Bacterial RNase P class A: a 388-nucleotide sequence from Pedobacter sp. BS3.
The organism belongs to Pedobacter, within Bacteria.
Rfam classes the family as a ribozyme.
The base pairs follow the family's consensus structure, which is taken from published work.
[Rfam]
RNA sequence: CCUGCAAGCCGUUCUAUCGCUCAGUCCCCGUAAAUGCGGGAUGGAGAGGAAAGUCCGGGCAACACAGAGCAUCCUGCUUCCUAACGGGAAGGCGCCGGUUAUACGGUGACGGAAAGUGCCACAGAAAAUAUACCGCCUGCUUCGGCAUGGUAAGGGUGAAAUUGUGAGGUAAGAGCUCACAGCUUUUCCGGGCGACCGGGAUUGCGGUAAACCCCAGGAGUUGAAAGACCAAAUAAAUCCCGAACCUGGAAUGGCUCGUUCCAACGCGGUUCUGCUGCUUUCGGGAAGGGUAGGUCGUUAGAGCCGGUUAGUGAUGGCCGGCCCAGAUAAAUGAUAGAAAUCCGGCUCAGGCCGGAUACAGAACCCGGCUUACAGGCUUGCUUUUUUU
Numbered sequence: 001c002c003u004g005c006a007a008g009c010c011g012u013u014c015u016a017u018c019g020c021u022c023a024g025u026c027c028c029c030g031u032a033a034a035u036g037c038g039g040g041a042u043g044g045a046g047a048g049g050a051a052a053g054u055c056c057g058g059g060c061a062a063c064a065c066a067g068a069g070c071a072u073c074c075u076g077c078u079u080c081c082u083a084a085c086g087g088g089a090a091g092g093c094g095c096c097g098g099u100u101a102u103a104c105g106g107u108g109a110c111g112g113a114a115a116g117u118g119c120c121a122c123a124g125a126a127a128a129u130a131u132a133c134c135g136c137c138u139g140c141u142u143c144g145g146c147a148u149g150g151u152a153a154g155g156g157u158g159a160a161a162u163u164g165u166g167a168g169g170u171a172a173g174a175g176c177u178c179a180c181a182g183c184u185u186u187u188c189c190g191g192g193c194g195a196c197c198g199g200g201a202u203u204g205c206g207g208u209a210a211a212c213c214c215c216a217g218g219a220g221u222u223g224a225a226a227g228a229c230c231a232a233a234u235a236a237a238u239c240c241c242g243a244a245c246c247u248g249g250a251a252u253g254g255c256u257c258g259u260u261c262c263a264a265c266g267c268g269g270u271u272c273u274g275c276u277g278c279u280u281u282c283g284g285g286a287a288g289g290g291u292a293g294g295u296c297g298u299u300a301g302a303g304c305c306g307g308u309u310a311g312u313g314a315u316g317g318c319c320g321g322c323c324c325a326g327a328u329a330a331a332u333g334a335u336a337g338a339a340a341u342c343c344g345g346c347u348c349a350g351g352c353c354g355g356a357u358a359c360a361g362a363a364c365c366c367g368g369c370u371u372a373c374a375g376g377c378u379u380g381c382u383u384u385u386u387u388u
Stems, first nucleotide, its partner, number of pairs: 004381007011373001012339007020046003024042005051371003055368005060223004068273002072219005077091005092110001093108004111214002116212002118208003133155002135151003139146002163181006186201006227296004238286005266278004303322008
Dot-bracket structure: ...(((((((((((((((.(((.(((((.........))))).)))....[[[.[[[[[((((....[[..((((((((((.....)))))(((((........)))).)((...(((((............(((((.((....))..)))..)).......((((((.......))))))....((((((....))))))....)))..)))))))))))))...((((.......(((((.......................((((..]].))))...)))))......))))......((((((((....))))))))..........)))))))........................]]]]]]]].).))))))).......